[Rfam]
RNA: Small nucleolar RNA Z279/snoR105/snoR108
Organism: Erythranthe guttata
RNA sequence: GUGAUGUGAUGAGUGGUAAAUACUCGCAAUUAACGGGGUGUCUGCCUAGCCUAUUACGACAAUGGGGCACUCCCUUCUUAACCAAUCUGAUCCC
Numbered sequence: 001g002u003g004a005u006g007u008g009a010u011g012a013g014u015g016g017u018a019a020a021u022a023c024u025c026g027c028a029a030u031u032a033a034c035g036g037g038g039u040g041u042c043u044g045c046c047u048a049g050c051c052u053a054u055u056a057c058g059a060c061a062a063u064g065g066g067g068c069a070c071u072c073c074c075u076u077c078u079u080a081a082c083c084a085a086u087c088u089g090a091u092c093c094c
Stems, first nucleotide, its partner, number of pairs: 001094001003092002014084004024032001035073008051065004